Shown here is a 73-nucleotide RNA from Jannaschia aquimarina, a member of the family "tRNA".
RNA sequence: GCCGGUAUAGCUCAGCUGGUAGAGCAUCUGAUUUGUAAUCAGAGGGUCGGGGGUUCGAGUCCCUCUGCCGGCA
Numbered sequence: 001g002c003c004g005g006u007a008u009a010g011c012u013c014a015g016c017u018g019g020u021a022g023a024g025c026a027u028c029u030g031a032u033u034u035g036u037a038a039u040c041a042g043a044g045g046g047u048c049g050g051g052g053g054u055u056c057g058a059g060u061c062c063c064u065c066u067g068c069c070g071g072c073a
Stems, first nucleotide, its partner, number of pairs: 001072007010025004027043005049065005
Rfam's curators write: Transfer RNA (tRNA) molecules are approximately 80 nucleotides in length. Their secondary structure includes four short double-helical elements and three loops (D, anti-codon, and T loops). The family's consensus secondary structure is taken from published work.